Rfam assigns this 126-nucleotide sequence from Cavia porcellus to the family "Small nucleolar RNA SNORA28".
Rfam links the family to the GO terms RNA processing and nucleolus.
NCBI's taxonomy places the organism under Eukaryota, Bilateria, Deuterostomia, Eutheria, Cavia.
The family's RNA type in Rfam is H/ACA-box small nucleolar RNA.
The match comes from Rfam's covariance-model search (99 bits).
The literature on the family includes a 2001 paper in EMBO J by Huttenhofer et al., "RNomics: an experimental approach that identifies 201 candidates for novel, small, non-messenger RNAs in mouse".
RNA sequence: AAUUUUCCCACUUUGACAGAUUAUCAAAAUGGUCUGUCACAAUUUGAGCUUGCUACCGCAAGAAAGUCUAGCCUAUUGCGGCACUCUCCUUUCCGUGAGACAGACCGUUACAUAGACUGAAACAAG
Numbered sequence: 001a002a003u004u005u006u007c008c009c010a011c012u013u014u015g016a017c018a019g020a021u022u023a024u025c026a027a028a029a030u031g032g033u034c035u036g037u038c039a040c041a042a043u044u045u046g047a048g049c050u051u052g053c054u055a056c057c058g059c060a061a062g063a064a065a066g067u068c069u070a071g072c073c074u075a076u077u078g079c080g081g082c083a084c085u086c087u088c089c090u091u092u093c094c095g096u097g098a099g100a101c102a103g104a105c106c107g108u109u110a111c112a113u114a115g116a117c118u119g120a121a122a123c124a125a126g
Base pairs, nucleotide, nucleotide: 009048011046012041014039015038017036018035019034020033021032022031065118066117067116068115069114070113074112076110079107080106081105087100088099090097